[Rfam]
RNA: Archaeal small subunit ribosomal RNA, nucleotides 1 to 525
Organism: Candidatus Korarchaeum cryptofilum
RNA sequence: AGACCGGUUGAUCCUGCCGGAGGGAACCCCUAUCGGGCUCGCACUAAGCCAUGCGAGUCUGCUGGGGGCCCCUGCCCCUGGCGGCGCACGGCUCCGUAAUACACGGUCAACCUGUCCUGGGGACCGGGAUAACCUCGGGAAACUGAGGUUAAUACCGGAUAGGGGUGGAUUCCUGGAAUGGGUCCACCCCUAAAGUAGGCGGGGGGACGGCCCCGCUGAGGCCCCAGGGUGGGACCGUGGCCUAUCAGGUAGUAGGUGGGGUAACGGCCCACCUAGCCUAAGACGGGUACGGGCUCUGAGAGGAGGAGCCCGGAGAUGGGCACUGAGACAAGGGCCCAGGCCCUACGGGGCGCAGCAGGCGGGAAACUUCCCCAAUGCGCGCAAGCGUGAGGGAGUGAGCCCGAGUGCCGCCCGCUGAGGGCGGCUGUUCCCCUGUGUAAAAAGCAGGGGGUAGGAAGGGGAGGGUAAGGCUGGUGCCAGCCGCCGCGGUAAAACCAGCUCCCCGAGGGGUUCCCACGCAUACUG
Numbered sequence: 001a002g003a004c005c006g007g008u009u010g011a012u013c014c015u016g017c018c019g020g021a022g023g024g025a026a027c028c029c030c031u032a033u034c035g036g037g038c039u040c041g042c043a044c045u046a047a048g049c050c051a052u053g054c055g056a057g058u059c060u061g062c063u064g065g066g067g068g069c070c071c072c073u074g075c076c077c078c079u080g081g082c083g084g085c086g087c088a089c090g091g092c093u094c095c096g097u098a099a100u101a102c103a104c105g106g107u108c109a110a111c112c113u114g115u116c117c118u119g120g121g122g123a124c125c126g127g128g129a130u131a132a133c134c135u136c137g138g139g140a141a142a143c144u145g146a147g148g149u150u151a152a153u154a155c156c157g158g159a160u161a162g163g164g165g166u167g168g169a170u171u172c173c174u175g176g177a178a179u180g181g182g183u184c185c186a187c188c189c190c191u192a193a194a195g196u197a198g199g200c201g202g203g204g205g206g207a208c209g210g211c212c213c214c215g216c217u218g219a220g221g222c223c224c225c226a227g228g229g230u231g232g233g234a235c236c237g238u239g240g241c242c243u244a245u246c247a248g249g250u251a252g253u254a255g256g257u258g259g260g261g262u263a264a265c266g267g268c269c270c271a272c273c274u275a276g277c278c279u280a281a282g283a284c285g286g287g288u289a290c291g292g293g294c295u296c297u298g299a300g301a302g303g304a305g306g307a308g309c310c311c312g313g314a315g316a317u318g319g320g321c322a323c324u325g326a327g328a329c330a331a332g333g334g335c336c337c338a339g340g341c342c343c344u345a346c347g348g349g350g351c352g353c354a355g356c357a358g359g360c361g362g363g364a365a366a367c368u369u370c371c372c373c374a375a376u377g378c379g380c381g382c383a384a385g386c387g388u389g390a391g392g393g394a395g396u397g398a399g400c401c402c403g404a405g406u407g408c409c410g411c412c413c414g415c416u417g418a419g420g421g422c423g424g425c426u427g428u429u430c431c432c433c434u435g436u437g438u439a440a441a442a443a444g445c446a447g448g449g450g451g452u453a454g455g456a457a458g459g460g461g462a463g464g465g466u467a468a469g470g471c472u473g474g475u476g477c478c479a480g481c482c483g484c485c486g487c488g489g490u491a492a493a494a495c496c497a498g499c500u501c502c503c504c505g506a507g508g509g510g511u512u513c514c515c516a517c518g519c520a521u522a523c524u525g
Stems, first nucleotide, its partner, number of pairs: 004020005022515010033404009042362001048360003052357003057085003063080007092315003102239007111232002116228007124158004132149007163189008172181002196220001241287003248278003253275008290312004294305004317338005340351004368394001370393003376389005407425007429455001430450007458504006471498004480487002